Rfam assigns this 71-nucleotide RNA sequence from Brugia malayi to the family "mir-50 microRNA precursor family". The organism belongs to Brugia, within Eukaryota. The literature on the family includes a 2001 paper in Science by Lau et al., "An abundant class of tiny RNAs with probable regulatory roles in Caenorhabditis elegans". Its Rfam clan is "mir-50 clan".
Nucleotides: 071
Stems, first nucleotide, its partner, number of pairs: 008063012021050002028045003
Number, partner (000 for none) and nucleotide at each position: 001000g002000c003000a004000g005000u006000g007000u008063u009062g010061a011060u012059a013058u014057g015056u016055c017054u018053g019052a020000u021050a022049u023000u024000c025000u026000u027000g028045g029044g030043u031000u032000g033000u034000g035000c036000a037000a038000a039000g040000u041000c042000a043030a044029c045028c046000a047000g048000c049022a050021u051000c052019u053018c054017a055016g056015a057014c058013g059012u060011a061010u062009c063008g064000g065000c066000c067000a068000c069000u070000g071000u